Source information: A member of the RNA family "Bacterial large signal recognition particle RNA" from Romboutsia lituseburensis, 265 nucleotides long.

RNA sequence: CUGUACUAGAUGGGGAGAUAGCGGUGCCCUGUAACCUGCAAUCCGCUUUAGCAGGAUUGAAUUCCAUCUAGAGGCUUAUUUUUUGUAGGGCUGCCCUAAAUAAGUGGUGUUGACGCUUAGGUCCUGCGCAAUGGAAGCUCAUGAACCCCGUCAGAUCCGGAAGGAAGCAGCGGUAAGUGAUCACUUCUGUGUGCCGCGGGGGUGCCUAAGUUGAGCUAACUGUUUAGGUAACGCCUAUGAGAUUAAGUCAAUAGAUGGUGUACAG
Dot-bracket structure: ((((((..(((((((.(.(...).).))))....(((((...........)))))))).....(((((((..(((((...(((((((((..((..((((((..(((((......((((((((((((((((.((((((.((((.....((((....(((....)))....))))...)))).)..)))))))...))))))...))))))))...))).)).)))))).))...)))))))))..)))))..))))))).))))))
Its family is annotated with SRP-dependent cotranslational protein targeting to membrane, signal sequence recognition and signal recognition particle, plasma membrane targeting in the Gene Ontology.